About this RNA
The family of this 86-nucleotide RNA sequence from Anaerocolumna cellulosilytica is "Group II catalytic intron D1-D4-1". From the family's description: Group II introns are found in rRNA, tRNA and mRNA of organelles in fungi, plants and protists, and also in mRNA in bacteria.
[Rfam]
RNA sequence: CAACCCAUAUAGUGAUGUAUGGCUGAACUCUAAGGGGUCAGCAGAGGUCAUAGUACUAGAGGUUGUCGACGACCAAUAGGAAGGAC
Numbered sequence: 001c002a003a004c005c006c007a008u009a010u011a012g013u014g015a016u017g018u019a020u021g022g023c024u025g026a027a028c029u030c031u032a033a034g035g036g037g038u039c040a041g042c043a044g045a046g047g048u049c050a051u052a053g054u055a056c057u058a059g060a061g062g063u064u065g066u067c068g069a070c071g072a073c074c075a076a077u078a079g080g081a082a083g084g085a086c
Stems, first nucleotide, its partner, number of pairs: 001025002005022007038045002047086003056079003065074001